[Rfam]
RNA sequence: GCACCACGGGAUGAAGUGGGCGGGCCUUACCAGCCCUGGAAAGUCCCCGGGCCCGUUGCGCAGCGAUGCGCCCACGGAGACGUGUGGACCGGCCCACGAGCUGGCUCUCCCCGCCUCGGUGGGGGGGGGGGGCUGAGACAUGUGUGGAGCCCAAUCACAGGGAGCCGGCUCUGGGCCCAUUGGCCAAAUCUGUCACAGUUAUUCACUUGGUCUUCUCCAUUGUGAUGGACUAACAGAACGGGGCUUACACUCCUGUGGUG
Numbered sequence: 001g002c003a004c005c006a007c008g009g010g011a012u013g014a015a016g017u018g019g020g021c022g023g024g025c026c027u028u029a030c031c032a033g034c035c036c037u038g039g040a041a042a043g044u045c046c047c048c049g050g051g052c053c054c055g056u057u058g059c060g061c062a063g064c065g066a067u068g069c070g071c072c073c074a075c076g077g078a079g080a081c082g083u084g085u086g087g088a089c090c091g092g093c094c095c096a097c098g099a100g101c102u103g104g105c106u107c108u109c110c111c112c113g114c115c116u117c118g119g120u121g122g123g124g125g126g127g128g129g130g131g132g133c134u135g136a137g138a139c140a141u142g143u144g145u146g147g148a149g150c151c152c153a154a155u156c157a158c159a160g161g162g163a164g165c166c167g168g169c170u171c172u173g174g175g176c177c178c179a180u181u182g183g184c185c186a187a188a189u190c191u192g193u194c195a196c197a198g199u200u201a202u203u204c205a206c207u208u209g210g211u212c213u214u215c216u217c218c219a220u221u222g223u224g225a226u227g228g229a230c231u232a233a234c235a236g237a238a239c240g241g242g243g244c245u246u247a248c249a250c251u252c253c254u255g256u257g258g259u260g
Stems, first nucleotide, its partner, number of pairs: 002260010014208006022036004041246003045243004059070004071086001073084004103169001105167001108163004119158004130152004140145001210230004
Shown here is a 260-nucleotide RNA from Eragrostis curvula, a member of the family "RNase MRP".
NCBI's taxonomy places the organism under Eukaryota, Streptophytina, Embryophyta, Chloridoideae, Eragrostis.